[Rfam]
This 79-nucleotide RNA sequence from Rossellomorea aquimaris belongs to the Rfam family "Glycine riboswitch aptamer".
RNA sequence: CUCUGGAGAGUGUUUCCAUUUGGAAGCCACCAAAGGGGAAAGCCGUUUUACCGGUAAACUUUCAGGUGAAAGGACAGAG
Numbered sequence: 001c002u003c004u005g006g007a008g009a010g011u012g013u014u015u016c017c018a019u020u021u022g023g024a025a026g027c028c029a030c031c032a033a034a035g036g037g038g039a040a041a042g043c044c045g046u047u048u049u050a051c052c053g054g055u056a057a058a059c060u061u062u063c064a065g066g067u068g069a070a071a072g073g074a075c076a077g078a079g
Stems, first nucleotide, its partner, number of pairs: 001079005012027004029067003033062001036061003043053001
Rfam's curators write: This family represents the bacterial glycine riboswitch. The base pairs follow the family's consensus structure.